RNA sequence: GGCUCCGAGCGGUCAGAGUGGUCUUUGACGCCGGACUUCAAAUCCGGUCUAUCCUCAAACGAUUGGGGGUUCGAUUCCCCCUCAGAGCC
Numbered sequence: 001g002g003c004u005c006c007g008a009g010c011g012g013u014c015a016g017a018g019u020g021g022u023c024u025u026u027g028a029c030g031c032c033g034g035a036c037u038u039c040a041a042a043u044c045c046g047g048u049c050u051a052u053c054c055u056c057a058a059a060c061g062a063u064u065g066g067g068g069g070u071u072c073g074a075u076u077c078c079c080c081c082u083c084a085g086a087g088c089c
Stems, first nucleotide, its partner, number of pairs: 001089005007083003012029005018023001030048006052061001066080004
Description:
The record is an 89-nucleotide sequence from Promethearchaeum syntrophicum, which matches "Selenocysteine transfer RNA" in Rfam. Taxonomically the source falls in Promethearchaeum (Archaea, Promethearchaeati, Promethearchaeota, Promethearchaeales). A search with the family's covariance model found it, with a score of 57 bits.